Rfam assigns this 85-nucleotide RNA sequence from Oryzias latipes to the family "mir-15 microRNA precursor family". Its family is annotated with RISC complex and miRNA-mediated post-transcriptional gene silencing in the Gene Ontology. The literature on the family includes a 2001 paper in Science by Lagos-Quintana et al., "Identification of novel genes coding for small expressed RNAs". The base pairs follow the family's consensus structure, which was predicted with RNAalifold. It scores 62 bits against the family's covariance model. This family represents the related mir-15a and mir-15b sequences. In humans miR-15a and miR-16 are clustered within 0.5 kb at 13q14. This region has been shown to be deleted in more than half of B cell chronic lymphocytic leukaemias (CLL). Both miR-15a and miR-16 are deleted or down-regulated in more than two thirds of CLL cases.
RNA sequence: CCUUAGAAUGCUGUAGCAGCGCAUCAUGGUUUGAAACAGUCAGAAAAAAGUGCGAACCAUUAUUUGCUGCUUUAGAAUUUUAAGG
Number, nucleotide and partner (000 for none) at each position: 001c085002c084003u083004u082005a081006g080007a000008a000009u000010g000011c000012u000013g073014u000015a071016g070017c069018a068019g067020c066021g065022c000023a063024u062025c000026a060027u059028g058029g057030u056031u055032u054033g053034a000035a051036a000037c000038a000039g000040u000041c000042a000043g000044a000045a000046a000047a000048a000049a000050g000051u035052g000053c033054g032055a031056a030057c029058c028059a027060u026061u000062a024063u023064u000065u021066g020067c019068u018069g017070c016071u015072u000073u013074a000075g000076a000077a000078u000079u000080u006081u005082a004083a003084g002085g001